[Rfam]
RNA sequence: UUGCUCUGGCUGGUCAAACGGAACCAAGUCCGUCUGACUGAGAGGUUUGGUCCCCUUCAACCAGCUACAGCAG
Numbered sequence: 001u002u003g004c005u006c007u008g009g010c011u012g013g014u015c016a017a018a019c020g021g022a023a024c025c026a027a028g029u030c031c032g033u034c035u036g037a038c039u040g041a042g043a044g045g046u047u048u049g050g051u052c053c054c055c056u057u058c059a060a061c062c063a064g065c066u067a068c069a070g071c072a073g
Stems, first nucleotide, its partner, number of pairs: 003071003008066007017057002020053003024050007